[Rfam]
The family of this 118-nucleotide sequence from Gossypium gossypioides is "mir-399 microRNA precursor family". From the family's description: mir-399 was identified in both Arabidopsis thaliana and Oryza sativa computationally and was later experimentally verified. mir-399 is thought to target mRNAs coding for a phosphatase transporter. On this family, see Jones-Rhoades and Bartel, Mol Cell 2004: "Computational Identification of Plant MicroRNAs and Their Targets, Including a Stress-Induced miRNA". The family's consensus secondary structure was predicted with PFOLD.
RNA sequence: AGUUUAAUAGCAGGGCAAUUCUCCUUUGGCGGAUGAUUGCACUACAUUUUUUUCUAUUACAAAGUGUGCAAUGUGCACUAUUUCAUCUGCCAAAGGAGAAUUGCACCGUUAUUCUUCU
Numbered sequence: 001a002g003u004u005u006a007a008u009a010g011c012a013g014g015g016c017a018a019u020u021c022u023c024c025u026u027u028g029g030c031g032g033a034u035g036a037u038u039g040c041a042c043u044a045c046a047u048u049u050u051u052u053u054c055u056a057u058u059a060c061a062a063a064g065u066g067u068g069c070a071a072u073g074u075g076c077a078c079u080a081u082u083u084c085a086u087c088u089g090c091c092a093a094a095g096g097a098g099a100a101u102u103g104c105a106c107c108g109u110u111a112u113u114c115u116u117c118u
Base pairs, nucleotide, nucleotide: 006113007112008111009110011108013106015104016103017102018101019100021098022097023096024095027092028091029090030089031088032087033086034085035084